Guanidine-II riboswitch aptamer (mini-ykkC): a 47-nucleotide sequence from Mariniblastus fucicola.
It scores 47 bits against the family's covariance model.
RNA sequence: AAGUGAGGACGACCUCACCGCUCUAUUCUCAUCCAGGGACGGCCCUG
Numbered sequence: 001a002a003g004u005g006a007g008g009a010c011g012a013c014c015u016c017a018c019c020g021c022u023c024u025a026u027u028c029u030c031a032u033c034c035a036g037g038g039a040c041g042g043c044c045c046u047g
Stems, first nucleotide, its partner, number of pairs: 003018006034047005